[Rfam]
RNA sequence: AAUACAUGAUGAGAAAAUGUUUCGGUCCCAGAUGAUGUCCGAUGAUAACUGUUACAUUUUUCUGAUGUU
Dot-bracket structure: ((((.............................................................))))
Small nucleolar RNA SNORD73: a 69-nucleotide sequence from Castor canadensis. Pairs were carried over by alignment from the consensus structure, which was predicted with PFOLD. Its family is annotated with RNA processing and nucleolus in the Gene Ontology. The source organism's lineage runs through Eukaryota, Eumetazoa, Chordata, Glires and Castor. A search with the family's covariance model found it, with a score of 84 bits. Rfam classes the family as a C/D-box small nucleolar RNA. Rfam 15.1 lists 769 matches to the family in 586 species.